The record is a 174-nucleotide RNA sequence from Planococcus rifietoensis, which matches "Lysine riboswitch aptamer" in Rfam. Riboswitches are metabolite binding domains within certain messenger RNAs that serve as precision sensors for their corresponding targets. Allosteric rearrangement of mRNA structure is mediated by ligand binding, and this results in modulation of gene expression. This family includes riboswitches that sense lysine in a number of genes involved in lysine metabolism, including lysC. The organism belongs to Planococcus, within Bacteria.
RNA sequence: AGUGAUGAUAGAGGAGCGGACGUCAAUAGUAUGCAUUCCGAGAUUUGCAGAAUCUGUGAAGGAUGCCGAAAGGGACGCCCGCCGAAGUUUAUGCGCACUGCUUGCGUGUAUGCUGGUCCUGCAUUUAAGAAAUGCAGGGCUGUCAGAGUUUGACUCUGGAGGGCUAUCUCACAU
Numbered sequence: 001a002g003u004g005a006u007g008a009u010a011g012a013g014g015a016g017c018g019g020a021c022g023u024c025a026a027u028a029g030u031a032u033g034c035a036u037u038c039c040g041a042g043a044u045u046u047g048c049a050g051a052a053u054c055u056g057u058g059a060a061g062g063a064u065g066c067c068g069a070a071a072g073g074g075a076c077g078c079c080c081g082c083c084g085a086a087g088u089u090u091a092u093g094c095g096c097a098c099u100g101c102u103u104g105c106g107u108g109u110a111u112g113c114u115g116g117u118c119c120u121g122c123a124u125u126u127a128a129g130a131a132a133u134g135c136a137g138g139g140c141u142g143u144c145a146g147a148g149u150u151u152g153a154c155u156c157u158g159g160a161g162g163g164c165u166a167u168c169u170c171a172c173a174u
Stems, first nucleotide, its partner, number of pairs: 007168005016082004021077004033066006086114003090110008115141011143159007
Dot-bracket structure: ......(((((....((((.((((........((((((......................)))))).......)))).))))...(((.((((((((.....)))))))).)))(((((((((((.....))))))))))).(((((((...)))))))....)))))......